[Rfam]
RNA sequence: UUAAAGAUACUUGCGUCCAGUCCCAGGUCGAGCGUUGAAGCGGAGAACCCGCGAGCCGUCGCAACUAAGGAGGGCGCCCCGGUGAGAACCACGGGGAGGUGAGAGUCCUAUGA
Numbered sequence: 001u002u003a004a005a006g007a008u009a010c011u012u013g014c015g016u017c018c019a020g021u022c023c024c025a026g027g028u029c030g031a032g033c034g035u036u037g038a039a040g041c042g043g044a045g046a047a048c049c050c051g052c053g054a055g056c057c058g059u060c061g062c063a064a065c066u067a068a069g070g071a072g073g074g075c076g077c078c079c080c081g082g083u084g085a086g087a088a089c090c091a092c093g094g095g096g097a098g099g100u101g102a103g104a105g106u107c108c109u110a111u112g113a
Stems, first nucleotide, its partner, number of pairs: 012110001013077006078096003082092003097109003
Dot-bracket structure: ...........(((((((.....................................................))))))(((.(((.....))).)))(((.......))))...
A member of the RNA family "pemK RNA", 113 nucleotides long. Rfam's curators put it in the seed alignment.